mir-252 microRNA precursor family: a 73-nucleotide RNA sequence from Ascaris suum. Its family is annotated with miRNA-mediated post-transcriptional gene silencing and RISC complex in the Gene Ontology. The family is grouped with related families in Rfam's "mir-252 microRNA precursor family". The base pairs follow the family's consensus structure, which was predicted with RNAalifold. Rfam 15.1 lists 422 matches to the family in 306 species.
Nucleotides: 073
Base pairs, nucleotide, nucleotide: 001073003071004070005069006068007067010064011063012062013061014060015059016058017057018056019055024051025050026049027048028047029046030045
Number, partner (000 for none) and nucleotide at each position: 001073g002000g003071a004070c005069c006068a007067g008000c009000c010064u011063a012062a013061g014060u015059a016058g017057u018056a019055g020000u021000g022000c023000c024051g025050c026049a027048g028047g029046u030045a031000a032000c033000a034000u035000g036000a037000c038000u039000u040000g041000g042000g043000a044000u045030u046029a047028c048027c049026u050025g051024c052000u053000c054000c055019c056018u057017g058016c059015u060014g061013c062012u063011u064010a065000a066000c067007u068006u069005g070004g071003u072000a073001c